[Rfam]
Notes: The record is a 68-nucleotide sequence from Crocodylus porosus, which matches "Mammalian CPEB3 ribozyme" in Rfam. About the family: The mammalian CPEB3 ribozyme is a self cleaving RNA located in the second intron of the CPEB3 gene which belongs to a family of genes regulating messenger RNA polyadenylation. Taxonomically the source falls in Crocodylus (Eukaryota, Metazoa, Dipnotetrapodomorpha, Crocodylia). A search with the family's covariance model found it, with a score of 39 bits.
RNA sequence: CAUAAAUCCAAGGUCACAGCAGAAGUAUUCAUGGUGUGGACUGUCAGAUUGAAUCUGUGAAUUCUGCU
Numbered sequence: 001c002a003u004a005a006a007u008c009c010a011a012g013g014u015c016a017c018a019g020c021a022g023a024a025g026u027a028u029u030c031a032u033g034g035u036g037u038g039g040a041c042u043g044u045c046a047g048a049u050u051g052a053a054u055c056u057g058u059g060a061a062u063u064c065u066g067c068u
Stems, first nucleotide, its partner, number of pairs: 012041001014039002018068007025037003045057005